[Rfam]
RNA sequence: GCCGGUCCUCGGUAGUGGUCUUCGGCUCGCCCCCACGGGGUCGCGCCGAGGGCUUCGAUCGAAGGCCGGC
Dot-bracket structure: (((((((.(((((...((((((((((.((............)).))))))))))...))))).)))))))